[Rfam]
RNA sequence: UUAGCUAUUUUAGAUAGGUUUGUAUUCAUUGAAGUGGAUACAAACGACCUAAGUGUUUUUUGUAUCUAUGAUGGCUAGAGAAUUUUGACGUACCGCCGGCCGCAUAGAGAAAUCUAAGUGGCUGAAGCAUAAUAUUUUUUGCAUUCGUAUCACCCACUUAGAGUUUCUAUACUUCUA
Numbered sequence: 001u002u003a004g005c006u007a008u009u010u011u012a013g014a015u016a017g018g019u020u021u022g023u024a025u026u027c028a029u030u031g032a033a034g035u036g037g038a039u040a041c042a043a044a045c046g047a048c049c050u051a052a053g054u055g056u057u058u059u060u061u062g063u064a065u066c067u068a069u070g071a072u073g074g075c076u077a078g079a080g081a082a083u084u085u086u087g088a089c090g091u092a093c094c095g096c097c098g099g100c101c102g103c104a105u106a107g108a109g110a111a112a113u114c115u116a117a118g119u120g121g122c123u124g125a126a127g128c129a130u131a132a133u134a135u136u137u138u139u140u141g142c143a144u145u146c147g148u149a150u151c152a153c154c155c156a157c158u159u160a161g162a163g164u165u166u167c168u169a170u171a172c173u174u175c176u177a
Base pairs, nucleotide, nucleotide: 001078002077003076004075005074006073007072011068012067013066014065015064016063018045019044020043021042022041023040024039025038026037027036028035029034048062051059052058083141087138088137090135091134098123099122100121101120102119103118105116106115107114143164144163145162146161149158
Enterococcus sRNA 2410: a 177-nucleotide sequence from Enterococcus hermanniensis. Rfam's curators write: Produced as 2 transcripts on Northern blot. Expressed in mid, late exponential and early stationary phases of growth. Expression remained uniform under daptomycin exposure. It scores 84 bits against the family's covariance model. It is annotated as a small RNA. Lineage of the source: Bacteria > Bacillati > Bacilli > Lactobacillales > Enterococcus.